[Rfam]
RNA sequence: CACAUUCGAAAGUUCAGCUACGGUAUCUGGACUUUCCUCGCUGGGUUCUCCUGGCGCGUUCCGAAGCCGCGGAUGCUCCUCCCUCAUCCGUAGGUAAUGCGCCCGCCUCGCCUCGCUCGCACCAGCGCGCGAGGCGUCUU
Numbered sequence: 001c002a003c004a005u006u007c008g009a010a011a012g013u014u015c016a017g018c019u020a021c022g023g024u025a026u027c028u029g030g031a032c033u034u035u036c037c038u039c040g041c042u043g044g045g046u047u048c049u050c051c052u053g054g055c056g057c058g059u060u061c062c063g064a065a066g067c068c069g070c071g072g073a074u075g076c077u078c079c080u081c082c083c084u085c086a087u088c089c090g091u092a093g094g095u096a097a098u099g100c101g102c103c104c105g106c107c108u109c110g111c112c113u114c115g116c117u118c119g120c121a122c123c124a125g126c127g128c129g130c131g132a133g134g135c136g137u138c139u140u
Stems, first nucleotide, its partner, number of pairs: 053103008069091007110135007118127001120125001
The record is a 140-nucleotide RNA sequence from Rhizobium phaseoli, which matches "Rhizobiales sRNA Atu_C7" in Rfam. Rfam classes the family as a small RNA.